[Rfam]
RNA sequence: UACCCCAAGGAGCGUUGCAGCAAAGGUAGACUUUGUCAGGCUUGGGAGAAUGGUUGCCUGCGGCUUUUCAGCCCAGGCGGCCUCCAGCAACGACGCUCACCUUCA
Number, nucleotide and partner (000 for none) at each position: 001u000002a000003c000004c046005c045006c044007a043008a042009g000010g000011a000012g000013c000014g000015u000016u000017g000018c000019a000020g000021c035022a034023a033024a032025g031026g000027u000028a000029g000030a000031c025032u024033u023034u022035g021036u000037c000038a000039g000040g000041c000042u008043u007044g006045g005046g004047a000048g000049a000050a000051u000052g000053g000054u000055u000056g000057c000058c000059u000060g000061c000062g000063g000064c000065u000066u000067u000068u000069c000070a000071g000072c000073c000074c000075a000076g000077g000078c000079g000080g000081c000082c000083u000084c000085c000086a000087g000088c000089a000090a000091c000092g000093a000094c000095g000096c000097u000098c000099a000100c000101c000102u000103u000104c000105a000
Rfam assigns this 105-nucleotide sequence from Polaromonas sp. to the family "SAH (S-adenosyl-L-homocysteine) riboswitch aptamer". Gene Ontology terms of the family: S-adenosylhomocysteine metabolic process and regulation of gene expression. The base pairs follow the family's consensus structure, which is taken from published work. It scores 48 bits against the family's covariance model. For this family Rfam cites "Riboswitches that sense S-adenosylhomocysteine and activate genes involved in coenzyme recycling" (Wang et al., Mol Cell, 2008).